[Rfam]
RNA sequence: AACUCCUGUUUCUGCCCCAAGUUCUUCCGCUGCCAUAGAAUUAUGGGUUCUGGUUAUGGAGAAGAAAAAGCCACUAGAUGUUUGAUGUACACCUUUGAUACAACCGUAUGUCUAAUAGCUAGUGGAUCGUGUGAUGGUACUGAAAAGCUUCAUGUGUGCUUUCUAGAUGGAUGGAGGCUCAGUACUUCGCUAUAUUU
Numbered sequence: 001a002a003c004u005c006c007u008g009u010u011u012c013u014g015c016c017c018c019a020a021g022u023u024c025u026u027c028c029g030c031u032g033c034c035a036u037a038g039a040a041u042u043a044u045g046g047g048u049u050c051u052g053g054u055u056a057u058g059g060a061g062a063a064g065a066a067a068a069a070g071c072c073a074c075u076a077g078a079u080g081u082u083u084g085a086u087g088u089a090c091a092c093c094u095u096u097g098a099u100a101c102a103a104c105c106g107u108a109u110g111u112c113u114a115a116u117a118g119c120u121a122g123u124g125g126a127u128c129g130u131g132u133g134a135u136g137g138u139a140c141u142g143a144a145a146a147g148c149u150u151c152a153u154g155u156g157u158g159c160u161u162u163c164u165a166g167a168u169g170g171a172u173g174g175a176g177g178c179u180c181a182g183u184a185c186u187u188c189g190c191u192a193u194a195u196u197u
Stems, first nucleotide, its partner, number of pairs: 003061004016047004020042006071125007079117004084112007131190004137185005148176005155169001159166002
The record is a 197-nucleotide RNA from Lachancea fermentati, which matches "Small nucleolar RNA snR43" in Rfam. On this family, see Balakin et al., Cell 1996: "The RNA world of the nucleolus: two major families of small RNAs defined by different box elements with related functions". Pairs were carried over by alignment from the consensus structure, which is taken from published work. The source organism's lineage runs through Eukaryota, Opisthokonta, Saccharomycetes, Saccharomycetaceae and Lachancea. Rfam classes the family as an H/ACA-box small nucleolar RNA.